[Rfam]
RNA sequence: ACGCUGCUCAGACUUCACAGACAAAUUGAGUUGAGGGUUUCGUGAGCGUGAGAGGUAAGCGCCGCGGCCUGCCUUUUCGGACCUUCCGUCGCUUUGUCCGCUGAUCUUCUUGACCCCCAGUCCCUGUGUCGCUCUCAGGUCGGUCACCUCCGUGCGUUCCCGUGUUUCGGGCCUGUGGGUGGAUUGCUUGCGACGCCUUGCCUGCCUGUUGACCGACAGCGACGUCAAGAUGAAGCUCUCCCUGGUGGCUGCGGUGCUGCUG
Numbered sequence: 001a002c003g004c005u006g007c008u009c010a011g012a013c014u015u016c017a018c019a020g021a022c023a024a025a026u027u028g029a030g031u032u033g034a035g036g037g038u039u040u041c042g043u044g045a046g047c048g049u050g051a052g053a054g055g056u057a058a059g060c061g062c063c064g065c066g067g068c069c070u071g072c073c074u075u076u077u078c079g080g081a082c083c084u085u086c087c088g089u090c091g092c093u094u095u096g097u098c099c100g101c102u103g104a105u106c107u108u109c110u111u112g113a114c115c116c117c118c119a120g121u122c123c124c125u126g127u128g129u130c131g132c133u134c135u136c137a138g139g140u141c142g143g144u145c146a147c148c149u150c151c152g153u154g155c156g157u158u159c160c161c162g163u164g165u166u167u168c169g170g171g172c173c174u175g176u177g178g179g180u181g182g183a184u185u186g187c188u189u190g191c192g193a194c195g196c197c198u199u200g201c202c203u204g205c206c207u208g209u210u211g212a213c214c215g216a217c218a219g220c221g222a223c224g225u226c227a228a229g230a231u232g233a234a235g236c237u238c239u240c241c242c243u244g245g246u247g248g249c250u251g252c253g254g255u256g257c258u259g260c261u262g
Base pairs, nucleotide, nucleotide: 004251006249007248008247016164017163018162020160032119033118035116036115037114038113059106062103064101065100066099067098168181169180172178173177
A member of the RNA family "bip internal ribosome entry site (IRES)" from Phyllostomus discolor, 262 nucleotides long. Rfam describes the family as follows. This family represents the bip internal ribosome entry site (IRES). It scores 157 bits against the family's covariance model. Pairs were carried over by alignment from the consensus structure, which was predicted with PFOLD. On this family, see Kim and Jang, Biochem Biophys Res Commun 2002: "Continuous heat shock enhances translational initiation directed by internal ribosomal entry site".